[Rfam]
Rfam assigns this 135-nucleotide RNA from Bucco capensis to the family "Small nucleolar RNA SNORA72". Its family is annotated with RNA processing and nucleolus in the Gene Ontology. Lineage of the source: Eukaryota > Eumetazoa > Dipnotetrapodomorpha > Piciformes > Bucco. U72 is a member of the H/ACA class of snoRNAs. The snoRNA gene is located in intron 4 of the ribosomal L30 protein gene in human, mouse and chicken. Rfam classes the family as an H/ACA-box small nucleolar RNA.
RNA sequence: AUGCGAAUCUUCUCGCUGUCCUGAUCCUGCUGUGAUCAGGGGAGGCUAGACAUUCGCUAGAUUGAAACUAGCCAUUGUGUCCUCCAGGACUAGACUCCUACUCUAGUACUGGCUUUGUAAAUGCUGGUGACAGAU
Numbered sequence: 001a002u003g004c005g006a007a008u009c010u011u012c013u014c015g016c017u018g019u020c021c022u023g024a025u026c027c028u029g030c031u032g033u034g035a036u037c038a039g040g041g042g043a044g045g046c047u048a049g050a051c052a053u054u055c056g057c058u059a060g061a062u063u064g065a066a067a068c069u070a071g072c073c074a075u076u077g078u079g080u081c082c083u084c085c086a087g088g089a090c091u092a093g094a095c096u097c098c099u100a101c102u103c104u105a106g107u108a109c110u111g112g113c114u115u116u117g118u119a120a121a122u123g124c125u126g127g128u129g130a131c132a133g134a135u
Stems, first nucleotide, its partner, number of pairs: 003057003016044002019041008067128004073123001084112004089107005